[Rfam]
RNA sequence: AGUGUCCCCCGCGGGCGCCCGAGCACGGGCUGAGAUUGCGCUGAUGCUGUGCAAGCACCGUUUGAACCUGUCUGGUUAACACCAGCGAAGGAAGAGAGGAGCGCGAGCCUA
Numbered sequence: 001a002g003u004g005u006c007c008c009c010c011g012c013g014g015g016c017g018c019c020c021g022a023g024c025a026c027g028g029g030c031u032g033a034g035a036u037u038g039c040g041c042u043g044a045u046g047c048u049g050u051g052c053a054a055g056c057a058c059c060g061u062u063u064g065a066a067c068c069u070g071u072c073u074g075g076u077u078a079a080c081a082c083c084a085g086c087g088a089a090g091g092a093a094g095a096g097a098g099g100a101g102c103g104c105g106a107g108c109c110u111a
Stems, first nucleotide, its partner, number of pairs: 006099002009096001011061004017030005037053005067091003072085004
Shown here is a 111-nucleotide RNA from Corynebacterium diphtheriae, a member of the family "TPP riboswitch aptamer (THI element)". Rfam's curators put it in the seed alignment.